[Rfam]
Nucleotides: 105
Stems, first nucleotide, its partner, number of pairs: 027099008039086003043082004047077004
Number, partner (000 for none) and nucleotide at each position: 001000c002000g003000g004000c005000u006000g007000u008000a009000g010000c011000c012000a013000a014000a015000u016000c017000a018000a019000a020000c021000a022000g023000a024000u025000u026000a027099g028098a029097g030096a031095a032094g033093c034092u035000a036000a037000c038000u039086g040085g041084c042000c043082g044081g045080u046079u047077g048076u049075u050074g051000u052000g053000a054000g055000a056000u057000u058000c059000a060000u061000u062000u063000u064000c065000g066000g067000u068000c069000u070000c071000u072000g073000u074050c075049a076048a077047c078000a079046a080045a081044u082043c083000u084041g085040c086039u087000u088000a089000c090000c091000g092034a093033g094032c095031u096030u097029c098028u099027c100000a101000c102000a103000u104000u105000u
Shown here is a 105-nucleotide RNA from Abrus precatorius, a member of the family "Small nucleolar RNA snoR109".
A search with the family's covariance model found it, with a score of 90 bits.
Its family is annotated with RNA processing and nucleolus in the Gene Ontology.
It is annotated as an H/ACA-box small nucleolar RNA.
The base pairs follow the family's consensus structure, which was predicted with WAR.
A reference for the family is Marker et al. (2002), "Experimental RNomics: identification of 140 candidates for small non-messenger RNAs in the plant Arabidopsis thaliana", Curr Biol.
Lineage of the source: Eukaryota > Magnoliopsida > Mesangiospermae > Abreae > Abrus.